[Rfam]
RNA sequence: GGAUAAUCCCAGGUGACUGGGGAAAGGUUAAGCCAGGCUGGUUGGCUUAGCCCCUCUAAAGUGGGGCCGAAAGGUUCAAUGGCGGAGGCAAGAUUCACCAGUUCCUCUGACCGCGUUCGCGCGCGGUCAGUAACGCGAAAAAGGAACUGAGCGAUGAGGGGCGAUUAGAAACCGCUCCGAAUUGAGUCAAGUAGCCCGGGCGAGUUUCGAUCCUGGGCAAAUCGCAGUUACCAGAGGGUACUCGGUUGCUACUGUGCAUCAGCACGGUCGGGCGACUCUGGCGGUCUCCGCGAGGGGGUCAGCCAAAGGAAAGACGCCGAAAGGCGGGACAAAGUGAGCGCACGCACCGGGGAGGACACGUGGUCUCGGCAGGACCCGUGAAAACCUUCCGAAACGUCGGCGAUGUUAAAAACGAUACCGCUGACCUGUCGAUGAAAGGCAACCUGAGAGUGAAGAGGCGAGACCCGUGGCACCGGGCGAACGCGCAGCCAAAAGCUGCGGCUGACCCGGCGCUAAGUGGUGAAGACGCGGAGACUGAGUCACAGACGUGUCUUUACCUGGUUCACAGGCCGGUGGCGCAACCACCAGCCGAAGCGAGCUGAAAAGCCUCACUCAAUAAUCCAGUUGCCGUAAGGCGCUGGACGGCCCUGCUACGAGGCCGGAGACUCCGCUUGCCGUGGAGAAUAGCGUCGGGAAGCUGACAGCCCUGCCUUGCGGGGCGCCCAAUGCCAGCACGGGAAAGAGAGUGUGGCGAACUCC
Numbered sequence: 001g002g003a004u005a006a007u008c009c010c011a012g013g014u015g016a017c018u019g020g021g022g023a024a025a026g027g028u029u030a031a032g033c034c035a036g037g038c039u040g041g042u043u044g045g046c047u048u049a050g051c052c053c054c055u056c057u058a059a060a061g062u063g064g065g066g067c068c069g070a071a072a073g074g075u076u077c078a079a080u081g082g083c084g085g086a087g088g089c090a091a092g093a094u095u096c097a098c099c100a101g102u103u104c105c106u107c108u109g110a111c112c113g114c115g116u117u118c119g120c121g122c123g124c125g126g127u128c129a130g131u132a133a134c135g136c137g138a139a140a141a142a143g144g145a146a147c148u149g150a151g152c153g154a155u156g157a158g159g160g161g162c163g164a165u166u167a168g169a170a171a172c173c174g175c176u177c178c179g180a181a182u183u184g185a186g187u188c189a190a191g192u193a194g195c196c197c198g199g200g201c202g203a204g205u206u207u208c209g210a211u212c213c214u215g216g217g218c219a220a221a222u223c224g225c226a227g228u229u230a231c232c233a234g235a236g237g238g239u240a241c242u243c244g245g246u247u248g249c250u251a252c253u254g255u256g257c258a259u260c261a262g263c264a265c266g267g268u269c270g271g272g273c274g275a276c277u278c279u280g281g282c283g284g285u286c287u288c289c290g291c292g293a294g295g296g297g298g299u300c301a302g303c304c305a306a307a308g309g310a311a312a313g314a315c316g317c318c319g320a321a322a323g324g325c326g327g328g329a330c331a332a333a334g335u336g337a338g339c340g341c342a343c344g345c346a347c348c349g350g351g352g353a354g355g356a357c358a359c360g361u362g363g364u365c366u367c368g369g370c371a372g373g374a375c376c377c378g379u380g381a382a383a384a385c386c387u388u389c390c391g392a393a394a395c396g397u398c399g400g401c402g403a404u405g406u407u408a409a410a411a412a413c414g415a416u417a418c419c420g421c422u423g424a425c426c427u428g429u430c431g432a433u434g435a436a437a438g439g440c441a442a443c444c445u446g447a448g449a450g451u452g453a454a455g456a457g458g459c460g461a462g463a464c465c466c467g468u469g470g471c472a473c474c475g476g477g478c479g480a481a482c483g484c485g486c487a488g489c490c491a492a493a494a495g496c497u498g499c500g501g502c503u504g505a506c507c508c509g510g511c512g513c514u515a516a517g518u519g520g521u522g523a524a525g526a527c528g529c530g531g532a533g534a535c536u537g538a539g540u541c542a543c544a545g546a547c548g549u550g551u552c553u554u555u556a557c558c559u560g561g562u563u564c565a566c567a568g569g570c571c572g573g574u575g576g577c578g579c580a581a582c583c584a585c586c587a588g589c590c591g592a593a594g595c596g597a598g599c600u601g602a603a604a605a606g607c608c609u610c611a612c613u614c615a616a617u618a619a620u621c622c623a624g625u626u627g628c629c630g631u632a633a634g635g636c637g638c639u640g641g642a643c644g645g646c647c648c649u650g651c652u653a654c655g656a657g658g659c660c661g662g663a664g665a666c667u668c669c670g671c672u673u674g675c676c677g678u679g680g681a682g683a684a685u686a687g688c689g690u691c692g693g694g695a696a697g698c699u700g701a702c703a704g705c706c707c708u709g710c711c712u713u714g715c716g717g718g719g720c721g722c723c724c725a726a727u728g729c730c731a732g733c734a735c736g737g738g739a740a741a742g743a744g745a746g747u748g749u750g751g752c753g754a755a756c757u758c759c
Stems, first nucleotide, its partner, number of pairs: 008021005026052011061080002064077003099149008111126005117138005152184004158178005168208005192220001194218007223256005229240004244444006280304003284300001286298004315326004350390005358379003362376003404417004448614003455610004471512001473510005484500006521556010561599004566594001572586005620642006627636003643661005650688004666682006697733004702728002704720002707717003744758003
Shown here is a 759-nucleotide RNA, a member of the family "MISL RNA". The family's RNA type in Rfam is small RNA.